This 152-nucleotide RNA from Macrococcus lamae belongs to the Rfam family "glmS glucosamine-6-phosphate activated ribozyme aptamer". By type it is a riboswitch. The source organism's lineage runs through Bacteria, Bacillota, Bacilli, Staphylococcaceae and Macrococcus. It scores 99 bits against the family's covariance model.
RNA sequence: AUAAGGGAUACAGCGCCAGAACAGUGGAUACUGUUGACGAGGAGAAUGGUUAUCGAACUUUCGGCGGAUGCCAUUCCGGACAUGCUUAUUCGAUAGCUGAUCGUUAAAUCUGCCAGGUGACUGGUGGCACAAAGACGUCAGCGCAAGCAAAU
Number, nucleotide and partner (000 for none) at each position: 001a000002u000003a000004a000005g000006g000007g000008a000009u000010a000011c000012a000013g000014c000015g000016c000017c000018a000019g000020a035021a034022c033023a032024g031025u030026g000027g000028a000029u000030a025031c024032u023033g022034u021035u020036g000037a000038c000039g000040a000041g000042g000043a000044g076045a075046a074047u073048g072049g000050u000051u000052a000053u064054c063055g062056a061057a000058c000059u000060u000061u056062c055063g054064g053065c000066g000067g000068a000069u000070g000071c000072c048073a047074u046075u045076c044077c092078g091079g090080a089081c000082a087083u000084g000085c000086u000087u082088a000089u080090u079091c078092g077093a000094u000095a000096g142097c141098u140099g139100a138101u137102c000103g000104u000105u000106a000107a000108a000109u000110c127111u126112g125113c124114c123115a122116g121117g000118u000119g000120a000121c116122u115123g114124g113125u112126g111127g110128c000129a000130c000131a000132a000133a000134g000135a000136c000137g101138u100139c099140a098141g097142c096143g000144c000145a000146a000147g000148c000149a000150a000151a000152u000